[Rfam]
RNA: SAH (S-adenosyl-L-homocysteine) riboswitch aptamer
Organism: Rhodoferax saidenbachensis
Nucleotides: 084
Base pairs, nucleotide, nucleotide: 002051004049005048006047007046008045021038022037023036024035025034
Number, partner (000 for none) and nucleotide at each position: 001000g002051c003000u004049u005048c006047c007046a008045a009000g010000g011000a012000g013000c014000g015000u016000u017000g018000c019000a020000g021038c022037g023036g024035g025034c026000c027000a028000c029000a030000c031000a032000g033000u034025g035024u036023c037022c038021g039000u040000c041000a042000g043000g044000c045008u046007u047006g048005g049004a050000u051002g052000g053000c054000g055000u056000u057000u058000a059000a060000c061000c062000g063000a064000c065000c066000g067000c068000a069000a070000c071000g072000a073000c074000g075000c076000u077000c078000a079000c080000c081000u082000g083000a084000a